[Rfam]
Rfam assigns this 87-nucleotide RNA from Campylobacter massiliensis to the family "tRNA".
The family's consensus secondary structure is taken from published work.
Taxonomically the source falls in Campylobacter (Bacteria, Campylobacterota, Campylobacterales, Campylobacteraceae).
It is annotated as a transfer RNA.

RNA sequence: CGGGAGAUGGCUGAGCGGUCGAAAGCGGCGGUCUUGAAAACCGUUGAGGUGUGAAAGCCUCCUGGGGUUCGAAUCCCUAUCUCCCGG
Numbered sequence: 001c002g003g004g005a006g007a008u009g010g011c012u013g014a015g016c017g018g019u020c021g022a023a024a025g026c027g028g029c030g031g032u033c034u035u036g037a038a039a040a041c042c043g044u045u046g047a048g049g050u051g052u053g054a055a056a057g058c059c060u061c062c063u064g065g066g067g068u069u070c071g072a073a074u075c076c077c078u079a080u081c082u083c084c085c086g087g
Stems, first nucleotide, its partner, number of pairs: 001086007010026003028044005063079005